RNA sequence: UGGUAGAUGCACCCUGGUUAAGCCCUAGAGGAUUUCUCUAGGGUUUUUUUAU
Numbered sequence: 001u002g003g004u005a006g007a008u009g010c011a012c013c014c015u016g017g018u019u020a021a022g023c024c025c026u027a028g029a030g031g032a033u034u035u036c037u038c039u040a041g042g043g044u045u046u047u048u049u050u051a052u
Stems, first nucleotide, its partner, number of pairs: 002013003022044010

Description:
This 52-nucleotide RNA sequence from Aerosakkonema funiforme belongs to the Rfam family "Nitrogen stress-induced RNA 1". Rfam classes the family as a small RNA. A reference for the family is Ionescu et al. (2010), "Heterocyst-specific transcription of NsiR1, a non-coding RNA encoded in a tandem array of direct repeats in cyanobacteria", J Mol Biol. The match comes from Rfam's covariance-model search (55 bits). The pairing is the family consensus, mapped onto this sequence. The organism belongs to Aerosakkonema funiforme, within Bacteria.